[Rfam]
RNA sequence: GAGCUGGCUUUAGCCCAGUGGUUCCUUCAAGUCUGGCUUCCCAACCUCCCGGGCCGAUUAGUCCGGUGGUUCGAGACCCACGGGCGCUCUCCAGUCCUUAA
Numbered sequence: 001g002a003g004c005u006g007g008c009u010u011u012a013g014c015c016c017a018g019u020g021g022u023u024c025c026u027u028c029a030a031g032u033c034u035g036g037c038u039u040c041c042c043a044a045c046c047u048c049c050c051g052g053g054c055c056g057a058u059u060a061g062u063c064c065g066g067u068g069g070u071u072c073g074a075g076a077c078c079c080a081c082g083g084g085c086g087c088u089c090u091c092c093a094g095u096c097c098u099u100a101a
Stems, first nucleotide, its partner, number of pairs: 003095005013085004018081004026075003030071001